[Rfam]
RNA sequence: GCAUCUGAAUGUUUCCUGCUCCUUGUGAUAUAGUGCUGGACUGGGGACAUGUGAUGCAAGAGGAAAGCAGAGGAAAUCCAGACAAGGUCUCUGUCACCACAGUGGGACUUGUCUCUACGCCUUUGCAACAUUU
Numbered sequence: 001g002c003a004u005c006u007g008a009a010u011g012u013u014u015c016c017u018g019c020u021c022c023u024u025g026u027g028a029u030a031u032a033g034u035g036c037u038g039g040a041c042u043g044g045g046g047a048c049a050u051g052u053g054a055u056g057c058a059a060g061a062g063g064a065a066a067g068c069a070g071a072g073g074a075a076a077u078c079c080a081g082a083c084a085a086g087g088u089c090u091c092u093g094u095c096a097c098c099a100c101a102g103u104g105g106g107a108c109u110u111g112u113c114u115c116u117a118c119g120c121c122u123u124u125g126c127a128a129c130a131u132u133u
Base pairs, nucleotide, nucleotide: 001057002056003055004054005053013047014046015045016044017043018042021039022038067126068125069124070123071122072121080114081113082112083111084110085109086108094105095104096103

The record is a 133-nucleotide RNA sequence from Heliornis fulica, which matches "Small nucleolar RNA SNORA55" in Rfam.
From the family's description: ACA55 is a member of the H/ACA class of snoRNA that guide the sites of modification of uridines to pseudouridines.
Its family is annotated with nucleolus and RNA processing in the Gene Ontology.